[Rfam]
This 132-nucleotide RNA from Streptomyces sp. ICC1 belongs to the Rfam family "Streptomyces RNA 6925". The pairing is the family consensus, mapped onto this sequence. The family's RNA type in Rfam is small RNA. A reference for the family is Vockenhuber et al. (2011), "Deep sequencing-based identification of small non-coding RNAs in Streptomyces coelicolor", RNA Biol. Taxonomically the source falls in Streptomyces (Bacteria, Actinomycetota, Kitasatosporales, Streptomycetaceae). Identified by deep sequencing of transcriptome at the end of exponential growth phase. Sequencing size consistent with northern blot size.
RNA sequence: GUGACCCGCCGUACCGGUGUGCCCGUGAGAAGGUCCGGUUCGGCGAUGUUGGGUGGCUGUCCGCUCAUUCGUGGGCGGUCGUGCUGCCAGAAGCGUCCGGCGUCUGAGAGUUCCCGCUCUCGGGCGCCGUCG
Numbered sequence: 001g002u003g004a005c006c007c008g009c010c011g012u013a014c015c016g017g018u019g020u021g022c023c024c025g026u027g028a029g030a031a032g033g034u035c036c037g038g039u040u041c042g043g044c045g046a047u048g049u050u051g052g053g054u055g056g057c058u059g060u061c062c063g064c065u066c067a068u069u070c071g072u073g074g075g076c077g078g079u080c081g082u083g084c085u086g087c088c089a090g091a092a093g094c095g096u097c098c099g100g101c102g103u104c105u106g107a108g109a110g111u112u113c114c115c116g117c118u119c120u121c122g123g124g125c126g127c128c129g130u131c132g
Base pairs, nucleotide, nucleotide: 003047009043010042011041013039014038015037016036017035022033023032049090050089051088052087054086055085061078062077063076064075065074066073067072098129099128100127101126102125103124104123105122106121107120108119109118110117111116